[Rfam]
Shown here is a 373-nucleotide sequence from Affinundibacterium nitidum, a member of the family "Bacterial RNase P class A". Rfam's curators write: Ribonuclease P (RNase P) is a ubiquitous endoribonuclease, found in archaea, bacteria and eukarya as well as chloroplasts and mitochondria. By type it is a ribozyme.

RNA sequence: GAAGCAGGCCAGACAAUCGCUGGUUGUCAUGUUCGCAUGAUGACGGGAGGAAGGUCCGGACUCCAUAGAGCAGGGUGACGGCUAACGGCCGUACGUUGAAAGCUGAGGUGCAAACCGAGGUAUAAGACGAGGAAUAGGGCCACAGAGACGAGUCUUUGGGGAGUAGUGAAGCGCAAGCGGAUACUAAACCACAAAGGGUGAAACGCGGUAACCUCCACCCGGAGCAAUUUCAAAUAGGCACGCGUUGAGGUGGCUCGCGGAGCGUGCGGGUAGAAAGCUUGAGUGACGGAGCAAUCCGUCGCCUAGAGGAAUGAUUGUCAUAGCGUACGCGAGUAUGCCGUAACAGAAUCCGGCCUAUCGGCCUGCUUCAAUU
Numbered sequence: 001g002a003a004g005c006a007g008g009c010c011a012g013a014c015a016a017u018c019g020c021u022g023g024u025u026g027u028c029a030u031g032u033u034c035g036c037a038u039g040a041u042g043a044c045g046g047g048a049g050g051a052a053g054g055u056c057c058g059g060a061c062u063c064c065a066u067a068g069a070g071c072a073g074g075g076u077g078a079c080g081g082c083u084a085a086c087g088g089c090c091g092u093a094c095g096u097u098g099a100a101a102g103c104u105g106a107g108g109u110g111c112a113a114a115c116c117g118a119g120g121u122a123u124a125a126g127a128c129g130a131g132g133a134a135u136a137g138g139g140c141c142a143c144a145g146a147g148a149c150g151a152g153u154c155u156u157u158g159g160g161g162a163g164u165a166g167u168g169a170a171g172c173g174c175a176a177g178c179g180g181a182u183a184c185u186a187a188a189c190c191a192c193a194a195a196g197g198g199u200g201a202a203a204c205g206c207g208g209u210a211a212c213c214u215c216c217a218c219c220c221g222g223a224g225c226a227a228u229u230u231c232a233a234a235u236a237g238g239c240a241c242g243c244g245u246u247g248a249g250g251u252g253g254c255u256c257g258c259g260g261a262g263c264g265u266g267c268g269g270g271u272a273g274a275a276a277g278c279u280u281g282a283g284u285g286a287c288g289g290a291g292c293a294a295u296c297c298g299u300c301g302c303c304u305a306g307a308g309g310a311a312u313g314a315u316u317g318u319c320a321u322a323g324c325g326u327a328c329g330c331g332a333g334u335a336u337g338c339c340g341u342a343a344c345a346g347a348a349u350c351c352g353g354c355c356u357a358u359c360g361g362c363c364u365g366c367u368u369c370a371a372u373u
Stems, first nucleotide, its partner, number of pairs: 001369010011358001012319007020047002023044008052356003056353005061224004068256004073220005078092005094129004132215002137213002139209003154197002156193001158192001160190002164186005228276004238267006250258002283302008